[Rfam]
RNA sequence: UAAAUGUGGAGUCCAGAAACCACAAGAAAAACGGGGCGAUACCGAAAAGCCUUACGAGUAGGAAAACA
Numbered sequence: 001u002a003a004a005u006g007u008g009g010a011g012u013c014c015a016g017a018a019a020c021c022a023c024a025a026g027a028a029a030a031a032c033g034g035g036g037c038g039a040u041a042c043c044g045a046a047a048a049g050c051c052u053u054a055c056g057a058g059u060a061g062g063a064a065a066a067c068a
Stems, first nucleotide, its partner, number of pairs: 006023004035051003042062002